[Rfam]
RNA sequence: GGGUGCUUGAGGCUGUCUGUCUCAAGCGCAAGCAAGAGCCAGAUAGACGAAAGCCCCGAAGGUCAAUUUUCAUUAACCAACGAGGCCCAACAUAAUGUUCGCAAAACUGAUGUUAGCCUCUCUCGACGCAGGAGGCAAGUAUG
Numbered sequence: 001g002g003g004u005g006c007u008u009g010a011g012g013c014u015g016u017c018u019g020u021c022u023c024a025a026g027c028g029c030a031a032g033c034a035a036g037a038g039c040c041a042g043a044u045a046g047a048c049g050a051a052a053g054c055c056c057c058g059a060a061g062g063u064c065a066a067u068u069u070u071c072a073u074u075a076a077c078c079a080a081c082g083a084g085g086c087c088c089a090a091c092a093u094a095a096u097g098u099u100c101g102c103a104a105a106a107c108u109g110a111u112g113u114u115a116g117c118c119u120c121u122c123u124c125g126a127c128g129c130a131g132g133a134g135g136c137a138a139g140u141a142u143g
Stems, first nucleotide, its partner, number of pairs: 001057003005054004011048001013046007021038003026033002058081001062077002065074003082120005089114005095108001097107001123134001
Dot-bracket structure: (((.((((..(.(((((((.(((..((....))..))).))))))).)..)))))))(...((.(((....))).))...)(((((..(((((.(.(.........)).))))).)))))..(..........).........
RNA: sok antitoxin (CssrC)